[Rfam]
RNA sequence: GGUUGCAAGCUUGAGGCCAUAGUGGAAGUGCUCAUAGCAUGGCUCUGCCAGGUAUCAAUGAAUCUGUGAAUUUUGCU
Numbered sequence: 001g002g003u004u005g006c007a008a009g010c011u012u013g014a015g016g017c018c019a020u021a022g023u024g025g026a027a028g029u030g031c032u033c034a035u036a037g038c039a040u041g042g043c044u045c046u047g048c049c050a051g052g053u054a055u056c057a058a059u060g061a062a063u064c065u066g067u068g069a070a071u072u073u074u075g076c077u
Base pairs, nucleotide, nucleotide: 013045014044016043017042018041021077022076023075024074025073026072027071028040029039030038049066050065051064052063053062055060
Record summary: Rfam assigns this 77-nucleotide RNA sequence from Alligator mississippiensis to the family "Mammalian CPEB3 ribozyme".